[Rfam]
RNA sequence: GCUUGGCUUAAUCUCAGCUGGCAACUGUGAGCAGUCCCUGCCUCCCUCACAGUGGUACCUGGGAUUAUGCUGAAC
Numbered sequence: 001g002c003u004u005g006g007c008u009u010a011a012u013c014u015c016a017g018c019u020g021g022c023a024a025c026u027g028u029g030a031g032c033a034g035u036c037c038c039u040g041c042c043u044c045c046c047u048c049a050c051a052g053u054g055g056u057a058c059c060u061g062g063g064a065u066u067a068u069g070c071u072g073a074a075c
Stems, first nucleotide, its partner, number of pairs: 003073005009067009021056002023053001026051006